[Rfam]
RNA sequence: UAAAUGCCUCUGACGAUCCAAGCUGAGUUGCCUGAUCGGCAGAGACUUUUUUUCUUUUAAAUGCCUCUAAUGAUCAGGCAACUCAGUUUGGAUUGUCAGAGUUGCUUGAUCGGCAGAGGCAUUUAAAAGAAAAAAACCCUUUUUUUUCUUUUAAAUGCCUCUGACGAUCCAAGCUGAGUUGCCUGAUCGUCAGAGGCAUUUAAAAGAAAAAAAGUCUAU
Numbered sequence: 001u002a003a004a005u006g007c008c009u010c011u012g013a014c015g016a017u018c019c020a021a022g023c024u025g026a027g028u029u030g031c032c033u034g035a036u037c038g039g040c041a042g043a044g045a046c047u048u049u050u051u052u053u054c055u056u057u058u059a060a061a062u063g064c065c066u067c068u069a070a071u072g073a074u075c076a077g078g079c080a081a082c083u084c085a086g087u088u089u090g091g092a093u094u095g096u097c098a099g100a101g102u103u104g105c106u107u108g109a110u111c112g113g114c115a116g117a118g119g120c121a122u123u124u125a126a127a128a129g130a131a132a133a134a135a136a137c138c139c140u141u142u143u144u145u146u147u148c149u150u151u152u153a154a155a156u157g158c159c160u161c162u163g164a165c166g167a168u169c170c171a172a173g174c175u176g177a178g179u180u181g182c183c184u185g186a187u188c189g190u191c192a193g194a195g196g197c198a199u200u201u202a203a204a205a206g207a208a209a210a211a212a213a214g215u216c217u218a219u
Base pairs, nucleotide, nucleotide: 002124003123004122005121006120007119008118011112012111015110019108020107021106022105023104025102027082028081029080030079031078032077035074036073037072038071041068042067043066044065049061050060051059084095085094086093087092138214140212141211142210145207147205149203150202157197158196159195160194161193162192163191164190165189166188167187169185170181171180172179